[Rfam]
RNA sequence: GGCUUUGCGUGUUCACUGCCGGCCUUCUGUGGCUGCAUUUGCAUAAGGCACGCGGUGAAUGCCAAGAGCU
Numbered sequence: 001g002g003c004u005u006u007g008c009g010u011g012u013u014c015a016c017u018g019c020c021g022g023c024c025u026u027c028u029g030u031g032g033c034u035g036c037a038u039u040u041g042c043a044u045a046a047g048g049c050a051c052g053c054g055g056u057g058a059a060u061g062c063c064a065a066g067a068g069c070u
Stems, first nucleotide, its partner, number of pairs: 003068004009062008018053002023048004028043003